[Rfam]
RNA: EcpR1
RNA sequence: GCGUCCCACGGAAGGUUCAGGUCCGCCGCAUCUCCUGACACCGUGGGGUUGACCGGUGCCCCGGCAGGCAGGAGUGGCCUCCUUGAAAUGCCUGCGGGAGCACCGGUCGCAUU
Numbered sequence: 001g002c003g004u005c006c007c008a009c010g011g012a013a014g015g016u017u018c019a020g021g022u023c024c025g026c027c028g029c030a031u032c033u034c035c036u037g038a039c040a041c042c043g044u045g046g047g048g049u050u051g052a053c054c055g056g057u058g059c060c061c062c063g064g065c066a067g068g069c070a071g072g073a074g075u076g077g078c079c080u081c082c083u084u085g086a087a088a089u090g091c092c093u094g095c096g097g098g099a100g101c102a103c104c105g106g107u108c109g110c111a112u113u
Stems, first nucleotide, its partner, number of pairs: 003049008017038005051108009061098001